[Rfam]
RNA sequence: AUGCCUUAAACUGAUGAGUAAGGAAAAUAACGAUGCGGGGUGACGCCCGUGUCCUCGUUCAAUUUACGAGAGUAAGUUUUGACAGGGCACAGGUCUGCUUGCUGAGGUGACUCGCCUACUUCGCGAGAUGCCUCCUGAGUCUAGGACCUUCCCC
Numbered sequence: 001a002u003g004c005c006u007u008a009a010a011c012u013g014a015u016g017a018g019u020a021a022g023g024a025a026a027a028u029a030a031c032g033a034u035g036c037g038g039g040g041u042g043a044c045g046c047c048c049g050u051g052u053c054c055u056c057g058u059u060c061a062a063u064u065u066a067c068g069a070g071a072g073u074a075a076g077u078u079u080u081g082a083c084a085g086g087g088c089a090c091a092g093g094u095c096u097g098c099u100u101g102c103u104g105a106g107g108u109g110a111c112u113c114g115c116c117u118a119c120u121u122c123g124c125g126a127g128a129u130g131c132c133u134c135c136u137g138a139g140u141c142u143a144g145g146a147c148c149u150u151c152c153c154c
Stems, first nucleotide, its partner, number of pairs: 004023005032053008054070005085153003091149006100138001105133005111127005
Description
The record is a 154-nucleotide RNA from Austrofundulus limnaeus, which matches "U12 minor spliceosomal RNA" in Rfam. Its family is annotated with U12 snRNP, mRNA branch site recognition and pre-mRNA branch point binding in the Gene Ontology. The match comes from Rfam's covariance-model search (118 bits). Lineage of the source: Eukaryota > Eumetazoa > Vertebrata > Atherinomorphae > Austrofundulus. It is annotated as a spliceosomal small nuclear RNA. The family is grouped with related families in Rfam's "U2 clan".